[Rfam]
RNA sequence: CCUAAGCGACCCCACUGCUUGCCCGAUUCCCGGUCACGGCACCAACCCCAUCGCCGCUGGCUCGCCCGACGU
Numbered sequence: 001c002c003u004a005a006g007c008g009a010c011c012c013c014a015c016u017g018c019u020u021g022c023c024c025g026a027u028u029c030c031c032g033g034u035c036a037c038g039g040c041a042c043c044a045a046c047c048c049c050a051u052c053g054c055c056g057c058u059g060g061c062u063c064g065c066c067c068g069a070c071g072u
Stems, first nucleotide, its partner, number of pairs: 007071002017040003020036002023033003051069003
Annotation: This 72-nucleotide sequence from Pseudomonas taeanensis belongs to the Rfam family "Pseudomonas sRNA P10". Pairs were carried over by alignment from the consensus structure, which was predicted with WAR. The source organism's lineage runs through Bacteria, Pseudomonadota, Gammaproteobacteria, Pseudomonadales and Pseudomonas taeanensis. For this family Rfam cites "Identification of 17 Pseudomonas aeruginosa sRNAs and prediction of sRNA-encoding genes in 10 diverse pathogens using the bioinformatic tool sRNAPredict2" (Livny et al., Nucleic Acids Res, 2006). Rfam 15.1 lists 62 matches to the family in 42 species.